[Rfam]
Shown here is a 134-nucleotide RNA sequence from Nelumbo nucifera, a member of the family "Small nucleolar RNA U19". The match comes from Rfam's covariance-model search (64 bits). For this family Rfam cites "Experimental RNomics: identification of 140 candidates for small non-messenger RNAs in the plant Arabidopsis thaliana" (Marker et al., Curr Biol, 2002). Lineage of the source: Eukaryota > Streptophyta > Mesangiospermae > Nelumbonaceae > Nelumbo. The family has 3 seed sequences and 421 matches in Rfam 15.1. Its family is annotated with nucleolus and RNA processing in the Gene Ontology.

RNA sequence: UGUUGGCUUAGUUAGGAGGCAGAGAGAAAGUGAUCGUUCCUGUCUUCUGGACUGGGUCGAUCUUCUCAGGCCUUUUGAGGGGACUUCUCGAUGAUUCUUCAAAUCGAUUGUUCUCCAAGCAGCCUUGGACAUCU
Number, nucleotide and partner (000 for none) at each position: 001u000002g000003u000004u021005g020006g000007c018008u017009u016010a000011g000012u000013u000014a000015g000016g009017a008018g007019g000020c005021a004022g000023a000024g000025a000026g000027a000028a000029a000030g000031u000032g062033a061034u060035c059036g058037u000038u000039c055040c054041u000042g052043u051044c000045u000046u000047c000048u000049g000050g000051a043052c042053u000054g040055g039056g000057u000058c036059g035060a034061u033062c032063u000064u000065c128066u127067c000068a125069g124070g123071c122072c000073u000074u119075u118076u117077g116078a000079g115080g114081g113082g112083a111084c110085u000086u000087c000088u000089c000090g000091a000092u000093g000094a000095u000096u000097c000098u000099u000100c000101a000102a000103a000104u000105c000106g000107a000108u000109u000110g084111u083112u082113c081114u080115c079116c077117a076118a075119g074120c000121a000122g071123c070124c069125u068126u000127g066128g065129a000130c000131a000132u000133c000134u000